[Rfam]
RNA: ZMP/ZTP riboswitch aptamer (pfl RNA motif)
Organism: Frankia canadensis
Nucleotides: 086
Stems, first nucleotide, its partner, number of pairs: 005055001008052005015045002017074005028041004063081005
Number, partner (000 for none) and nucleotide at each position: 001000g002000a003000a004000c005055g006000g007000a008052g009051u010050c011049g012048c013000g014000a015045c016044u017074g018073g019072c020071g021070c022000a023000c024000a025000g026000a027000g028041g029040u030039g031038g032000a033000a034000c035000u036000g037000a038031c039030c040029a041028c042000c043000g044016g045015g046000g047000a048012g049011c050010g051009a052008u053000g054000a055005u056000c057000g058000g059000a060000u061000c062000g063081g064080u065079g066078c067077c068000g069000c070021g071020c072019g073018u074017c075000u076000g077067g078066g079065u080064g081063c082000c083000u084000c085000c086000g